Rfam assigns this 307-nucleotide RNA sequence from Senna tora to the family "Plant signal recognition particle RNA". Its Rfam clan is "SRP clan".
[Rfam]
RNA sequence: GCCGAGCUGAGUAGCGCCAGCUUGUAACCUGUGUAGGGGCACAAAAGUGAUGGAACAUGGCUCUUGCCUCGCUAGGUUGGGCUGGAGGCUGCAAUAUGUUGGCCUGUCCAAUCCAAGCCGUGAGAUGAGCCAUGGGGUUUGAACGAAAGUCUGGGCCUCGUGUCUCCUAAACUGGAGGGCAAAGCGUAAGGCUGGCUUCACAGAGCAGCGAAUACCUCUGGCUCAUGACAGUAGAGGGAUAGCGGGCUUUCUGUUCUUCUUGCCCACUAUAAACUUUGCAGGCCUGGCUACUUGGACCAUCACUUUU
Numbered sequence: 001g002c003c004g005a006g007c008u009g010a011g012u013a014g015c016g017c018c019a020g021c022u023u024g025u026a027a028c029c030u031g032u033g034u035a036g037g038g039g040c041a042c043a044a045a046a047g048u049g050a051u052g053g054a055a056c057a058u059g060g061c062u063c064u065u066g067c068c069u070c071g072c073u074a075g076g077u078u079g080g081g082c083u084g085g086a087g088g089c090u091g092c093a094a095u096a097u098g099u100u101g102g103c104c105u106g107u108c109c110a111a112u113c114c115a116a117g118c119c120g121u122g123a124g125a126u127g128a129g130c131c132a133u134g135g136g137g138u139u140u141g142a143a144c145g146a147a148a149g150u151c152u153g154g155g156c157c158u159c160g161u162g163u164c165u166c167c168u169a170a171a172c173u174g175g176a177g178g179g180c181a182a183a184g185c186g187u188a189a190g191g192c193u194g195g196c197u198u199c200a201c202a203g204a205g206c207a208g209c210g211a212a213u214a215c216c217u218c219u220g221g222c223u224c225a226u227g228a229c230a231g232u233a234g235a236g237g238g239a240u241a242g243c244g245g246g247c248u249u250u251c252u253g254u255u256c257u258u259c260u261u262g263c264c265c266a267c268u269a270u271a272a273a274c275u276u277u278g279c280a281g282g283c284c285u286g287g288c289u290a291c292u293u294g295g296a297c298c299a300u301c302a303c304u305u306u307u
Stems, first nucleotide, its partner, number of pairs: 001040003004023006028037003043307011056294002059291001062287002066283002069281001071279002074276005079265004084260003088257001091254001093252001101248007108238002112235002115232001117229001119227006127166003131162011143150002173220006185210003192203003
It scores 211 bits against the family's covariance model. The family has 63 seed sequences and 4,988 matches in Rfam 15.1. The source organism's lineage runs through Eukaryota, Mesangiospermae, rosids, fabids and Senna. It is annotated as a non-coding RNA gene.